[Rfam]
RNA: Small nucleolar RNA SNORD42
RNA sequence: GUGCAAAUGAUGGAAAAAUCACUAGUUGGAAAAGAAUGACACAAACAAAGGAACCACUGAUGCAU
Numbered sequence: 001g002u003g004c005a006a007a008u009g010a011u012g013g014a015a016a017a018a019u020c021a022c023u024a025g026u027u028g029g030a031a032a033a034g035a036a037u038g039a040c041a042c043a044a045a046c047a048a049a050g051g052a053a054c055c056a057c058u059g060a061u062g063c064a065u
Base pairs, nucleotide, nucleotide: 001065002064003063004062005061